Notes:
The record is a 49-nucleotide RNA from Tritonibacter litoralis, which matches "SAM/SAH riboswitch aptamer" in Rfam. Gene Ontology terms of the family: regulation of gene expression and S-adenosylmethionine metabolic process.
[Rfam]
RNA sequence: CUCUCGUCACAACGGCUUCCUGGCGUGACGGGUAAAUCACAAUGGAGCA
Numbered sequence: 001c002u003c004u005c006g007u008c009a010c011a012a013c014g015g016c017u018u019c020c021u022g023g024c025g026u027g028a029c030g031g032g033u034a035a036a037u038c039a040c041a042a043u044g045g046a047g048c049a
Stems, first nucleotide, its partner, number of pairs: 004031007013022002015048003019045002

The match comes from Rfam's covariance-model search (60 bits).